[Rfam]
RNA sequence: GUCUUGUCAGUGAUGUUUCCAAACACAAAUGUCUGAACAUAUGACUUUCUGUGAUUCGUGCUUUCUAACUGAGACAAGAC
Numbered sequence: 001g002u003c004u005u006g007u008c009a010g011u012g013a014u015g016u017u018u019c020c021a022a023a024c025a026c027a028a029a030u031g032u033c034u035g036a037a038c039a040u041a042u043g044a045c046u047u048u049c050u051g052u053g054a055u056u057c058g059u060g061c062u063u064u065c066u067a068a069c070u071g072a073g074a075c076a077a078g079a080c
Base pairs, nucleotide, nucleotide: 002079003078004077005076006075007074008073
RNA: Small nucleolar RNA SNORD72
Organism: Scophthalmus maximus